[Rfam]
RNA sequence: UCUCUCUCAGCUCCGCUUUAUCAUACUCAGUGUGUGCUUGGCGUAUUUUGAGAGAGAGAGGAAGGCCCUCCUAAUGCACGGCAGACUGGCCCCAAGUGGCCUCUCUGUUCCUAGGAGCGCAACAUCU
Numbered sequence: 001u002c003u004c005u006c007u008c009a010g011c012u013c014c015g016c017u018u019u020a021u022c023a024u025a026c027u028c029a030g031u032g033u034g035u036g037c038u039u040g041g042c043g044u045a046u047u048u049u050g051a052g053a054g055a056g057a058g059a060g061g062a063a064g065g066c067c068c069u070c071c072u073a074a075u076g077c078a079c080g081g082c083a084g085a086c087u088g089g090c091c092c093c094a095a096g097u098g099g100c101c102u103c104u105c106u107g108u109u110c111c112u113a114g115g116a117g118c119g120c121a122a123c124a125u126c127u
Stems, first nucleotide, its partner, number of pairs: 002060007011052003015048001020038001022036005068117005074112001076110001083106003088101004
This 127-nucleotide RNA sequence from Callorhinus ursinus belongs to the Rfam family "Small nucleolar RNA SNORA64/SNORA10 family". The match comes from Rfam's covariance-model search (98 bits). Clan: SNORA64 clan. Rfam's curators write: This family belongs to the H/ACA class of small nucleolar RNAs (snoRNAs) which act as guides in the the modification of uridines to pseudouridines.